Annotation
Rfam assigns this 129-nucleotide sequence to the family "Small nucleolar RNA SNORA33".
RNA sequence: AAGUCAGCCAAUUAAUCUGCUUAUCUCAAUGUUUCUGCAGAAAUUUAGAAAGGGCUGGAAAUGAUAGUGUCAUGAUAUGAAUCUUAAGGGCAGCUGAAGCCUUUAAGGUCCCUGAAAGUGGCUACAGUA
Numbered sequence: 001a002a003g004u005c006a007g008c009c010a011a012u013u014a015a016u017c018u019g020c021u022u023a024u025c026u027c028a029a030u031g032u033u034u035c036u037g038c039a040g041a042a043a044u045u046u047a048g049a050a051a052g053g054g055c056u057g058g059a060a061a062u063g064a065u066a067g068u069g070u071c072a073u074g075a076u077a078u079g080a081a082u083c084u085u086a087a088g089g090g091c092a093g094c095u096g097a098a099g100c101c102u103u104u105a106a107g108g109u110c111c112c113u114g115a116a117a118g119u120g121g122c123u124a125c126a127g128u129a
Stems, first nucleotide, its partner, number of pairs: 004058004016041005069122004081109007089101003
The base pairs follow the family's consensus structure, which was predicted with PFOLD. About the family: ACA33 is a member of the H/ACA class of snoRNA that guide the sites of modification of uridines to pseudouridines.